Annotation: The family of this 68-nucleotide RNA sequence is "Xanthine riboswitch aptamer (NMT1 RNA)". A reference for the family is Xu et al. (2021), "Insights into xanthine riboswitch structure and metal ion-mediated ligand recognition", Nucleic Acids Res. Its family is annotated with purine nucleobase binding in the Gene Ontology.
RNA sequence: CGCAAGAGUAGAAGCGUUCAGCAGCGCACGCACCACCGUUGUGCGCCCGCCCGGAAAUUGCUCUUGAA
Dot-bracket structure: ....((((((....[..((.((.(((((((.........)))))))..))..]))...))))))....